[Rfam]
RNA sequence: AGUCAUAUGCUUGUCUCAAAGAUUAAGCCAUGCAUGUCUAAGUAUAAGCAAUUAUACAGCGAAACUGCGAAUGGCUCAUUAAAUCAGUUAUCGUUUAUUUGAUAGUACCUUACUACUUGGAUAACCGUGGUAAUUCUAGAGCUAAUACAUGCUAAAAAUCCCGACUUUACGAAGGGACGUGUUUAUUAGAUUAAAAGCCAAUGCCCCUCGGGGCUCCUUGGUGAUUCAUGAUAACCUCACGAAUCGCACGGCCUUGCGCCGGCGAUGGUUCAUUCAAAUUUCUGCCCUAUCAACUUUCGACGGCUGGGUCUUGGCCAGCCGUGGUGACAACGGGUAACGGAGGGUUAGGGCUCGACCCCGGAGAGGGAGCCUGAGAAACGGCUACCACAUCCAAGGAAGGCAGCAGGCGCGCAAAUUACCCAAUCCCGACUCGGGGAGGUAGUGACAAUAAAUACUGAUACAGGGCUCUUUUGGGUCUUGUAAUUGGAAUGAGUACAAUUUAAAUCCCUUAACGAGGAACAAUUGGAGGGCAAGUCUGGUGCCAGCAGCCGCGGUAAUUCCAGCUCCAAUAGCGUAUAUUAAAGUUGUUG
Numbered sequence: 001a002g003u004c005a006u007a008u009g010c011u012u013g014u015c016u017c018a019a020a021g022a023u024u025a026a027g028c029c030a031u032g033c034a035u036g037u038c039u040a041a042g043u044a045u046a047a048g049c050a051a052u053u054a055u056a057c058a059g060c061g062a063a064a065c066u067g068c069g070a071a072u073g074g075c076u077c078a079u080u081a082a083a084u085c086a087g088u089u090a091u092c093g094u095u096u097a098u099u100u101g102a103u104a105g106u107a108c109c110u111u112a113c114u115a116c117u118u119g120g121a122u123a124a125c126c127g128u129g130g131u132a133a134u135u136c137u138a139g140a141g142c143u144a145a146u147a148c149a150u151g152c153u154a155a156a157a158a159u160c161c162c163g164a165c166u167u168u169a170c171g172a173a174g175g176g177a178c179g180u181g182u183u184u185a186u187u188a189g190a191u192u193a194a195a196a197g198c199c200a201a202u203g204c205c206c207c208u209c210g211g212g213g214c215u216c217c218u219u220g221g222u223g224a225u226u227c228a229u230g231a232u233a234a235c236c237u238c239a240c241g242a243a244u245c246g247c248a249c250g251g252c253c254u255u256g257c258g259c260c261g262g263c264g265a266u267g268g269u270u271c272a273u274u275c276a277a278a279u280u281u282c283u284g285c286c287c288u289a290u291c292a293a294c295u296u297u298c299g300a301c302g303g304c305u306g307g308g309u310c311u312u313g314g315c316c317a318g319c320c321g322u323g324g325u326g327a328c329a330a331c332g333g334g335u336a337a338c339g340g341a342g343g344g345u346u347a348g349g350g351c352u353c354g355a356c357c358c359c360g361g362a363g364a365g366g367g368a369g370c371c372u373g374a375g376a377a378a379c380g381g382c383u384a385c386c387a388c389a390u391c392c393a394a395g396g397a398a399g400g401c402a403g404c405a406g407g408c409g410c411g412c413a414a415a416u417u418a419c420c421c422a423a424u425c426c427c428g429a430c431u432c433g434g435g436g437a438g439g440u441a442g443u444g445a446c447a448a449u450a451a452a453u454a455c456u457g458a459u460a461c462a463g464g465g466c467u468c469u470u471u472u473g474g475g476u477c478u479u480g481u482a483a484u485u486g487g488a489a490u491g492a493g494u495a496c497a498a499u500u501u502a503a504a505u506c507c508c509u510u511a512a513c514g515a516g517g518a519a520c521a522a523u524u525g526g527a528g529g530g531c532a533a534g535u536c537u538g539g540u541g542c543c544a545g546c547a548g549c550c551g552c553g554g555u556a557a558u559u560c561c562a563g564c565u566c567c568a569a570u571a572g573c574g575u576a577u578a579u580u581a582a583a584g585u586u587g588u589u590g
Stems, first nucleotide, its partner, number of pairs: 001580003005577007014450001016448001020443001021410001027408003031405003036068002041066003048060002075363003085284003090279002094277002100272003116151001118149002125141001128138003159177004165171001183234006197222004204213003244265004249261004286334003293325003300322008338360003342353004365386002368383003388399001390397002416441001418440003424436005456486003459482010493513002495510001497509001523569006536563004545552002
Dot-bracket structure: (((.(((((((..(.(...((.....(((.(((..((...(((....((.........))...)))))......(((.......(((..((..((....(((.............(.((.....(..(((.....)))..)......)).).......((((..(.....)..)))).....((((((........((((...(((....))).....))))......)))))).........((((.((((.....))))))))....)))...))))..))).(((....(((....((((((((.......)))))))))))......)))...(((.((((....))))....)))))).((.(((..........))).)).(.((....)).)...)))))).).....(.(((...(((((...))))).)))).)....).).....(((((((((((((....)))))))))).)))......(((.(...........)).)).........((((((.......((((.....((....)).......)))))))))).))))))))))..........
RNA: Eukaryotic small subunit ribosomal RNA, nucleotides 22 to 611
Organism: Brassica oleracea